[Rfam]
RNA sequence: CUUCCCAUUUAUUUGCUGUAUUGUCUCUCAGUAACAUGAACAGUUGUAUUCAUAGGAUAAAAUAAUGUUGGCCCAUUGUAAACUGAGUUGAAGAAACUGCUUUUUCUCUGCUACAUGAUGUGGACAAUG
Numbered sequence: 001c002u003u004c005c006c007a008u009u010u011a012u013u014u015g016c017u018g019u020a021u022u023g024u025c026u027c028u029c030a031g032u033a034a035c036a037u038g039a040a041c042a043g044u045u046g047u048a049u050u051c052a053u054a055g056g057a058u059a060a061a062a063u064a065a066u067g068u069u070g071g072c073c074c075a076u077u078g079u080a081a082a083c084u085g086a087g088u089u090g091a092a093g094a095a096a097c098u099g100c101u102u103u104u105u106c107u108c109u110g111c112u113a114c115a116u117g118a119u120g121u122g123g124a125c126a127a128u129g
Stems, first nucleotide, its partner, number of pairs: 003057003007053002015044005021038001022036003068123003074117002077115004085108003090103004
The record is a 129-nucleotide RNA from Chinchilla lanigera, which matches "Small nucleolar RNA SNORA20" in Rfam. A search with the family's covariance model found it, with a score of 75 bits. Rfam links the family to the GO terms nucleolus and RNA processing. The family's consensus secondary structure was predicted with ILM. By type it is an H/ACA-box small nucleolar RNA. ACA20 is a member of the H/ACA class of snoRNA that guide the sites of modification of uridines to pseudouridines. Taxonomically the source falls in Chinchilla (Eukaryota, Chordata, Gnathostomata, Eutheria).